RNA sequence: UACUUAUCCAGAAAGACUGAGGGACUGGGCCCUACGACGUCUUGGCAACCUAAGCGAAACAAGGUGCCAACUCCCAUUCGGCCGAAAAAAACGACCGAAGAAGAUAAGUA
Numbered sequence: 001u002a003c004u005u006a007u008c009c010a011g012a013a014a015g016a017c018u019g020a021g022g023g024a025c026u027g028g029g030c031c032c033u034a035c036g037a038c039g040u041c042u043u044g045g046c047a048a049c050c051u052a053a054g055c056g057a058a059a060c061a062a063g064g065u066g067c068c069a070a071c072u073c074c075c076a077u078u079c080g081g082c083c084g085a086a087a088a089a090a091a092c093g094a095c096c097g098a099a100g101a102a103g104a105u106a107a108g109u110a
Base pairs, nucleotide, nucleotide: 001110002109003108004107005106006105007104008103013043014042015041016040017039021032022031023030026076027075028074029073044068045067046066047065049064050063054060072102077099078098079097080096081095
SAM riboswitch aptamer (S box leader): a 110-nucleotide RNA from Hymenobacter crusticola. Lineage of the source: Bacteria > Pseudomonadati > Bacteroidota > Cytophagales > Hymenobacter. The family's consensus secondary structure is taken from published work. A search with the family's covariance model found it, with a score of 74 bits.